Source information: U4 spliceosomal RNA: a 138-nucleotide RNA from Microcebus murinus. For this family Rfam cites "The uRNA database" (Zwieb, Nucleic Acids Res, 1997). The match comes from Rfam's covariance-model search (94 bits).
RNA sequence: AGCUUUGUGCAGUGGCAGUAUUGUAGCCACUGAGGUUUAUCUGAGGCACAAUUAUUGCUAAUUGAAAAGUUUUCCCAAUACCCAGGCAUGAUGACUUGUUAUAUAGUAGGAUUGGCAACUUUUGAUAACUCUACAGAG
Numbered sequence: 001a002g003c004u005u006u007g008u009g010c011a012g013u014g015g016c017a018g019u020a021u022u023g024u025a026g027c028c029a030c031u032g033a034g035g036u037u038u039a040u041c042u043g044a045g046g047c048a049c050a051a052u053u054a055u056u057g058c059u060a061a062u063u064g065a066a067a068a069g070u071u072u073u074c075c076c077a078a079u080a081c082c083c084a085g086g087c088a089u090g091a092u093g094a095c096u097u098g099u100u101a102u103a104u105a106g107u108a109g110g111a112u113u114g115g116c117a118a119c120u121u122u123u124g125a126u127a128a129c130u131c132u133a134c135a136g137a138g
Stems, first nucleotide, its partner, number of pairs: 020052005026047003034042002085116001087114001088112002092108001094107003131138002
U4 small nuclear RNA (U4 snRNA) is a component of the major U2-dependent spliceosome. NCBI's taxonomy places the organism under Eukaryota, Bilateria, Chordata, Primates, Microcebus.